[Rfam]
RNA sequence: GUCGCCGCGAGGCGGGGUGGGGAGGAAGCCGGAGGCAAAGCUCGGAGCUGACGAACAGGAAUCGGAUAGAAGGCCGGUGCGGCGGGAUAACCCAGCAAUGGAUGGGGAUGUCCGAUAGCCAGACAGACGCGCGCAUUGGUAAAUCCGGCAGCGACCGAGUGAAGGAUCAACGUC
Dot-bracket structure: .(((((....)))))............(.((....(...((((((.((((...........((((((.....(((.(((((((.((((..((((........))))...))))...............)).))))).)))..))))))))))..))))))....).....)).)

Shown here is a 174-nucleotide sequence from Novosphingobium sp. AP12, a member of the family "Group II catalytic intron D1-D4-3". Taxonomically the source falls in Novosphingobium (Bacteria, Pseudomonadota, Alphaproteobacteria, Sphingomonadaceae). Pairs were carried over by alignment from the consensus structure.